[Rfam]
RNA: RNA anti-toxin A
RNA sequence: UCAUGCUAUAAUAUAAAAAGAAGCCCUGUGAAUAACAGAACUUCUCAUGUAGAGCCGUAAAAGACGGUGGCAUGAUAAUAAUUACUAAAAA
Numbered sequence: 001u002c003a004u005g006c007u008a009u010a011a012u013a014u015a016a017a018a019a020g021a022a023g024c025c026c027u028g029u030g031a032a033u034a035a036c037a038g039a040a041c042u043u044c045u046c047a048u049g050u051a052g053a054g055c056c057g058u059a060a061a062a063g064a065c066g067g068u069g070g071c072a073u074g075a076u077a078a079u080a081a082u083u084a085c086u087a088a089a090a091a
Base pairs, nucleotide, nucleotide: 026038027037028036054068055067056066057065058064
Dot-bracket structure: .........................(((.......)))...............(((((.....))))).......................